[Rfam]
RNA sequence: CGAGUUCAGGAUCGCCCCCCGUCAGCGAGUAUCGCCCACGGGGGCGCAACUG
Numbered sequence: 001c002g003a004g005u006u007c008a009g010g011a012u013c014g015c016c017c018c019c020c021g022u023c024a025g026c027g028a029g030u031a032u033c034g035c036c037c038a039c040g041g042g043g044g045c046g047c048a049a050c051u052g
Stems, first nucleotide, its partner, number of pairs: 016044007025035004

This 52-nucleotide RNA from Vannielia litorea belongs to the Rfam family "ffh sRNA". For this family Rfam cites "Identification of candidate structured RNAs in the marine organism 'Candidatus Pelagibacter ubique'" (Meyer et al., BMC Genomics, 2009). A search with the family's covariance model found it, with a score of 53 bits.